[Rfam]
About this RNA: This 72-nucleotide RNA sequence from Halovulum dunhuangense belongs to the Rfam family "Makes More Granules Regulator RNA (mmgR)". From the family's description: SuhB later renamed mmgR (makes more granules regulator) was a putative non-coding RNA found multiple times in the Agrobacterium tumefaciens genome and related alpha-proteobacteria. Other non-coding RNAs uncovered in the same analysis include: speF, ybhL, metA, and serC.Several studies inSinorhizobium meliloti showed that suhB element is indeed a non-coding RNA:firstly it was detected on Northern blot and called Sm8RNA, secondly in an RNAseq study referred to as SmelC689.The mutant phenotype's (strain lacking the small RNA) cytoplasm contains higher content of polyhydroxybutyrate (PBH)storage granules than wild type strain. The sRNA is required to limit the PBH intracellular accumulation when the nitrogen-fixing Sinorhizobium meliloti is under condition of surplus carbon in relation to nitrogen. It has been renamed to mmgR. Further study confirmed that mmgR fine-tunes the regulation of PBH storage.Northern blot confirmed the expression of the sRNA in other rhizobia species.

RNA sequence: GGCGAUUGCCCGUUCCGGGCAUUUCCUCCCUAGACUUGGGCCGCAGUUUUGCGGCCCAUUUUUUUUGCCCGU
Numbered sequence: 001g002g003c004g005a006u007u008g009c010c011c012g013u014u015c016c017g018g019g020c021a022u023u024u025c026c027u028c029c030c031u032a033g034a035c036u037u038g039g040g041c042c043g044c045a046g047u048u049u050u051g052c053g054g055c056c057c058a059u060u061u062u063u064u065u066u067g068c069c070c071g072u
Stems, first nucleotide, its partner, number of pairs: 008020004038057008
Record summary
The organism belongs to Halovulum, within Bacteria.